[Rfam]
RNA: Mammalian CPEB3 ribozyme
Organism: Crocodylus porosus
RNA sequence: GGUCAUAAACUUAAGGCCAUAAUAGAAGUGCUCACAGCACAGCCUGUCAGAUUUCAAUGAAUCCGUGAACUCUGCU
Numbered sequence: 001g002g003u004c005a006u007a008a009a010c011u012u013a014a015g016g017c018c019a020u021a022a023u024a025g026a027a028g029u030g031c032u033c034a035c036a037g038c039a040c041a042g043c044c045u046g047u048c049a050g051a052u053u054u055c056a057a058u059g060a061a062u063c064c065g066u067g068a069a070c071u072c073u074g075c076u
Stems, first nucleotide, its partner, number of pairs: 015044003021076001023074004028040003048065001050063005